RNA sequence: GUUAGCCAAAGGCAAACUCAUUGAAAGAUGGGGACGCAAAGCCGCGGAUCUAAGGCAGGUUAGACUGCUAAGACAGCCGGGCUGCCGUA
Numbered sequence: 001g002u003u004a005g006c007c008a009a010a011g012g013c014a015a016a017c018u019c020a021u022u023g024a025a026a027g028a029u030g031g032g033g034a035c036g037c038a039a040a041g042c043c044g045c046g047g048a049u050c051u052a053a054g055g056c057a058g059g060u061u062a063g064a065c066u067g068c069u070a071a072g073a074c075a076g077c078c079g080g081g082c083u084g085c086c087g088u089a
Stems, first nucleotide, its partner, number of pairs: 012037002017032006040083004045079003049073002055068004
c-di-GMP-I riboswitch aptamer: an 89-nucleotide RNA sequence from Bacillus sp. MUM 13. The source organism's lineage runs through Bacteria, Bacillota, Bacilli, Caryophanales and Bacillus. The match comes from Rfam's covariance-model search (83 bits). Pairs were carried over by alignment from the consensus structure, which is taken from published work.